[Rfam]
RNA sequence: AAUGGGGAGGGGGGGCACAACAGAAGCAUUCACAUAGUGGCCUCUGUCAGAUUCUGGUGAAUCUGCCAAUUCUGCU
Number, nucleotide and partner (000 for none) at each position: 001a000002a000003u000004g000005g000006g000007g000008a000009g000010g000011g044012g043013g042014g041015g000016c039017a000018c000019a076020a000021c074022a073023g072024a071025a070026g038027c037028a000029u000030u000031c000032a000033c000034a000035u000036a000037g027038u026039g016040g000041c014042c013043u012044c011045u000046g000047u000048c065049a064050g063051a062052u061053u060054c059055u000056g000057g000058u000059g054060a053061a052062u051063c050064u049065g048066c000067c000068a000069a000070u025071u024072c023073u022074g021075c000076u019
A member of the RNA family "Mammalian CPEB3 ribozyme" from Phyllostomus discolor, 76 nucleotides long. The base pairs follow the family's consensus structure, which is taken from published work. Rfam's curators write: The mammalian CPEB3 ribozyme is a self cleaving RNA located in the second intron of the CPEB3 gene which belongs to a family of genes regulating messenger RNA polyadenylation. This ribozyme is highly conserved and found only in mammals. The CPEB3 ribozyme is structurally and biochemically related to the human hepatitis delta virus (HDV) ribozyme and the HDV ribozyme is proposed to have arisen from the human transcriptome. There is currently only one other known self cleaving ribozyme in mammals, the CoTC motif. Gene Ontology term of the family: RNA nuclease activity. The match comes from Rfam's covariance-model search (65 bits). NCBI's taxonomy places the organism under Eukaryota, Gnathostomata, Tetrapoda, Laurasiatheria, Phyllostomus.